[Rfam]
RNA sequence: GUGGGAGGAAGCUCAUUGUAGAGGUCACGUGCAGAGUGCUCGUCACUCCUCCAGUUACCUCGGGGAAGGUCUGAGACAAGAGCCAAUAGCUGCUCUUGCAGGGCAUCACCUGAUUCGGGUGAGCGAGUGAACAGAAAUAGUGGUGCCGACGCGAGCACGUCUCACAGGAGAAGCCAGGUGGAGCAGUUUAUCAGCUCCUCCGGUGGAUGUGGUGCUCGCUGGCUUGGAAUCACUCGCGGCUGGCGAAUGAGUGCGAUGUGUGAGGUGGAGUACAGCUCCAGAACCCAAUUCAGACUACUCUCCUUCCAC
Numbered sequence: 001g002u003g004g005g006a007g008g009a010a011g012c013u014c015a016u017u018g019u020a021g022a023g024g025u026c027a028c029g030u031g032c033a034g035a036g037u038g039c040u041c042g043u044c045a046c047u048c049c050u051c052c053a054g055u056u057a058c059c060u061c062g063g064g065g066a067a068g069g070u071c072u073g074a075g076a077c078a079a080g081a082g083c084c085a086a087u088a089g090c091u092g093c094u095c096u097u098g099c100a101g102g103g104c105a106u107c108a109c110c111u112g113a114u115u116c117g118g119g120u121g122a123g124c125g126a127g128u129g130a131a132c133a134g135a136a137a138u139a140g141u142g143g144u145g146c147c148g149a150c151g152c153g154a155g156c157a158c159g160u161c162u163c164a165c166a167g168g169a170g171a172a173g174c175c176a177g178g179u180g181g182a183g184c185a186g187u188u189u190a191u192c193a194g195c196u197c198c199u200c201c202g203g204u205g206g207a208u209g210u211g212g213u214g215c216u217c218g219c220u221g222g223c224u225u226g227g228a229a230u231c232a233c234u235c236g237c238g239g240c241u242g243g244c245g246a247a248u249g250a251g252u253g254c255g256a257u258g259u260g261u262g263a264g265g266u267g268g269a270g271u272a273c274a275g276c277u278c279c280a281g282a283a284c285c286c287a288a289u290u291c292a293g294a295c296u297a298c299u300c301u302c303c304u305u306c307c308a309c
Base pairs, nucleotide, nucleotide: 001309002308003307004306007303008302009301012264013263014262015261016260021061022060023059024058034048035047036046037045038044071293072292073291074290075289081241082240083239084238091105092104093103094102095101106122107121108120109119110118111117123237124236125235126234127233128232129231143223266280267279268278269277270276